[Rfam]
RNA sequence: AGCGCUCACCCGGGGGGUCCCGACAAGGGGCUGAGAUACUGCUGGCUUACGCAGCGCAGUGACCCGAUGAACCUGAUCCAGUUCACACUGGCGUAGGGAUGGUGCAUCGGCUGCGCG
Number, nucleotide and partner (000 for none) at each position: 001a000002g000003c000004g000005c000006u000007c104008a103009c102010c101011c066012g065013g064014g063015g000016g000017g031018u030019c029020c028021c027022g000023a000024c000025a000026a000027g021028g020029g019030g018031c017032u000033g000034a000035g000036a000037u000038a060039c059040u058041g057042c056043u000044g000045g000046c000047u000048u000049a000050c000051g000052c000053a000054g000055c000056g042057c041058a040059g039060u038061g000062a000063c014064c013065c012066g011067a000068u000069g000070a000071a000072c097073c096074u095075g094076a000077u000078c091079c090080a089081g088082u000083u000084c000085a000086c000087a000088c081089u080090g079091g078092c000093g000094u075095a074096g073097g072098g000099a000100u000101g010102g009103u008104g007105c000106a000107u000108c000109g000110g000111c000112u000113g000114c000115g000116c000117g000
TPP riboswitch aptamer (THI element): a 117-nucleotide RNA sequence from Martelella sp. AD-3. Taxonomically the source falls in Martelella (Bacteria, Pseudomonadati, Pseudomonadota, Alphaproteobacteria). A search with the family's covariance model found it, with a score of 68 bits.